Rfam assigns this 133-nucleotide sequence from Eutrema salsugineum to the family "MIR161 microRNA precursor family".
Lineage of the source: Eukaryota > Euphyllophyta > Gunneridae > rosids > Eutrema.
The base pairs follow the family's consensus structure, which was predicted with RNAalifold.
RNA sequence: GUUAUUGCGUCGAUCAAUGCAUUGAAAGUGACUACAUCGGGGCUUGUUUUUUGUUUUUCUCAGCUUUGAUCAAUUUGAUGAAGAGGAAAAUUAGCCACGGUGUAAUCACUUUCACUGCGUUAAUCAAUGCAUU
Numbered sequence: 001g002u003u004a005u006u007g008c009g010u011c012g013a014u015c016a017a018u019g020c021a022u023u024g025a026a027a028g029u030g031a032c033u034a035c036a037u038c039g040g041g042g043c044u045u046g047u048u049u050u051u052u053g054u055u056u057u058u059c060u061c062a063g064c065u066u067u068g069a070u071c072a073a074u075u076u077g078a079u080g081a082a083g084a085g086g087a088a089a090a091u092u093a094g095c096c097a098c099g100g101u102g103u104a105a106u107c108a109c110u111u112u113c114a115c116u117g118c119g120u121u122a123a124u125c126a127a128u129g130c131a132u133u
Base pairs, nucleotide, nucleotide: 006131007130008129009128012125013124014123016121017120018119019118020117021116023114024113025112026111027110028109029108030107031106033104034103035102036101037100038099039098041096042095044088045087047085048084049083050082051081052080053079